[Rfam]
RNA: Small nucleolar RNA SNORA55
Organism: Ornithorhynchus anatinus
Nucleotides: 140
Base pairs, nucleotide, nucleotide: 001056002055003054004053005052013046014045015044017041020038021037067133068132069131070130071129072128080121081120082119083118084117085116086115094112096110
Number, partner (000 for none) and nucleotide at each position: 001056g002055c003054g004053u005052u006000g007000g008000a009000u010000u011000g012000u013046u014045u015044c016000c017041g018000c019000c020038c021037u022000c023000u024000a025000c026000c027000g028000u029000g030000a031000c032000g033000u034000g035000a036000g037021a038020g039000u040000c041017u042000u043000a044015g045014g046013a047000u048000g049000g050000g051000a052005g053004a054003u055002g056001u057000u058000a059000c060000a061000g062000a063000a064000c065000c066000a067133g068132c069131a070130g071129g072128g073000g074000a075000a076000a077000u078000c079000c080121a081120g082119a083118u084117g085116g086115g087000u088000g089000a090000u091000c092000u093000u094112c095000c096110a097000c098000c099000a100000g101000a102000g103000a104000u105000a106000g107000a108000g109000a110096u111000a112094g113000c114000c115086c116085u117084c118083a119082u120081c121080u122000c123000u124000a125000c126000a127000c128072c129071u130070c131069u132068g133067c134000c135000a136000u137000a138000a139000c140000u